[Rfam]
RNA sequence: CUCUGGGCGCAAGGCGCUCAGGGCGGAAAGAG
Numbered sequence: 001c002u003c004u005g006g007g008c009g010c011a012a013g014g015c016g017c018u019c020a021g022g023g024c025g026g027a028a029a030g031a032g
Base pairs, nucleotide, nucleotide: 001023002022003021004020005019006018007017008016009015010014
RNA: L31-Firmicutes ribosomal protein leader